RNA sequence: AAAAUAUCAUUUUCAGUGUAUAAUAUAUUUA
Number, nucleotide and partner (000 for none) at each position: 001a000002a030003a029004a028005u027006a026007u025008c000009a024010u023011u022012u000013u020014c018015a000016g000017u000018g014019u000020a013021u000022a011023a010024u009025a007026u006027a005028u004029u003030u002031a000

A member of the RNA family "Iron response element II" from Dissostichus mawsoni, 31 nucleotides long. The family's consensus secondary structure is taken from published work. IRE, TFRC, SLC40A1, SDHB, SLC11A2, CDC42BPA, ACO2, ALAS2_H.SAPIENS, CDC14A, EPAS1, ALAS2, qoxD, Hao1, NDUFS1, transferrin, Aconitate. Rfam 15.1 lists 5,197 matches to the family in 722 species.